[Rfam]
RNA sequence: AGGAGAGGGAGAGCGGCCGACGGUAGGACUGGAUCCAGCUGAGGAAGUUCCCUCCUCCAAGGGCAAGAUGGACAGGCGUAAGCCUGUACGGCGAGAGUCGUGGCAAGGGCUCAGAAACGACACAGUUCCGGCCAUAGGAUGAUCCACCUGGUGGUGACAUUUCCGGAGAUUUGGUGAAACGGCGACUCCCCAUCGGAGCAAGUUCAUACAACGGGGAAGACCUGCCCGGGACCCGUGGGUAGAAUGCGAAGUUGAAUGCCGCUUUAAACAGAAGGGGGGCUACUACCCUCACCU
Numbered sequence: 001a002g003g004a005g006a007g008g009g010a011g012a013g014c015g016g017c018c019g020a021c022g023g024u025a026g027g028a029c030u031g032g033a034u035c036c037a038g039c040u041g042a043g044g045a046a047g048u049u050c051c052c053u054c055c056u057c058c059a060a061g062g063g064c065a066a067g068a069u070g071g072a073c074a075g076g077c078g079u080a081a082g083c084c085u086g087u088a089c090g091g092c093g094a095g096a097g098u099c100g101u102g103g104c105a106a107g108g109g110c111u112c113a114g115a116a117a118c119g120a121c122a123c124a125g126u127u128c129c130g131g132c133c134a135u136a137g138g139a140u141g142a143u144c145c146a147c148c149u150g151g152u153g154g155u156g157a158c159a160u161u162u163c164c165g166g167a168g169a170u171u172u173g174g175u176g177a178a179a180c181g182g183c184g185a186c187u188c189c190c191c192a193u194c195g196g197a198g199c200a201a202g203u204u205c206a207u208a209c210a211a212c213g214g215g216g217a218a219g220a221c222c223u224g225c226c227c228g229g230g231a232c233c234c235g236u237g238g239g240u241a242g243a244a245u246g247c248g249a250a251g252u253u254g255a256a257u258g259c260c261g262c263u264u265u266a267a268a269c270a271g272a273a274g275g276g277g278g279g280c281u282a283c284u285a286c287c288c289u290c291a292c293c294u
Base pairs, nucleotide, nucleotide: 001294002293003292005290006289007288008287009286010284011283012263013262014261015260016259017258021041022040023039024038046281047280048279050278051277052276053275054274055198056197057196058195061227062226063225064224067194068193069192070191071190072087073086074085075084076083088101089100090099091098092097102189103188109183110182123173124172125171126168127167128166129165130164131163144154145153202245203244204243205242211236212235213234214233215232
Shown here is a 294-nucleotide RNA sequence from a Methanomassiliicoccales archaeon, a member of the family "Archaeal RNase P". About the family: Ribonuclease P (RNase P) is a ubiquitous endoribonuclease, found in archaea, bacteria and eukarya as well as chloroplasts and mitochondria. Its best characterised activity is the generation of mature 5'-ends of tRNAs by cleaving the 5'-leader elements of precursor-tRNAs. Cellular RNase Ps are ribonucleoproteins. RNA from bacterial RNase Ps retains its catalytic activity in the absence of the protein subunit, i.e. it is a ribozyme. Rfam classes the family as a ribozyme. The base pairs follow the family's consensus structure, which is taken from published work.